[Rfam]
RNA sequence: UAAUUUAUUCGAGAUAUAUUAUCAUUUAGUUAUGGAAGACCCACACCUGACUUCUCGGAAUCACCCGUUAUCACAAGUCCGAUUAUGCCAUUGACUUUUAAAAACUAAGAACAACUACUAUGUGAACAAUUUUGUUUUUUGAG
Numbered sequence: 001u002a003a004u005u006u007a008u009u010c011g012a013g014a015u016a017u018a019u020u021a022u023c024a025u026u027u028a029g030u031u032a033u034g035g036a037a038g039a040c041c042c043a044c045a046c047c048u049g050a051c052u053u054c055u056c057g058g059a060a061u062c063a064c065c066c067g068u069u070a071u072c073a074c075a076a077g078u079c080c081g082a083u084u085a086u087g088c089c090a091u092u093g094a095c096u097u098u099u100a101a102a103a104a105c106u107a108a109g110a111a112c113a114a115c116u117a118c119u120a121u122g123u124g125a126a127c128a129a130u131u132u133u134g135u136u137u138u139u140u141g142a143g
Stems, first nucleotide, its partner, number of pairs: 004141001007138001012132001014130002019125001023122003027117005

Shown here is a 143-nucleotide RNA sequence from Salix viminalis, a member of the family "MIR480 microRNA precursor family".
The match comes from Rfam's covariance-model search (108 bits).
The base pairs follow the family's consensus structure, which was predicted with WAR.